[Rfam]
RNA sequence: ACGAAGUGAUGAUUAAUAUUCAUAUCUGUCAAUCCUCUGAAGCAUUUUAUGAUGUCUUUGUGAAUAUCUCGACAGGUUCUGAUCGU
Numbered sequence: 001a002c003g004a005a006g007u008g009a010u011g012a013u014u015a016a017u018a019u020u021c022a023u024a025u026c027u028g029u030c031a032a033u034c035c036u037c038u039g040a041a042g043c044a045u046u047u048u049a050u051g052a053u054g055u056c057u058u059u060g061u062g063a064a065u066a067u068c069u070c071g072a073c074a075g076g077u078u079c080u081g082a083u084c085g086u
Stems, first nucleotide, its partner, number of pairs: 001086004
A member of the RNA family "Small nucleolar RNA snoR14" from Zostera marina, 86 nucleotides long. For this family Rfam cites "Multiple snoRNA gene clusters from Arabidopsis" (Brown et al., RNA, 2001). The family's RNA type in Rfam is C/D-box small nucleolar RNA. Gene Ontology terms of the family: nucleolus and RNA processing.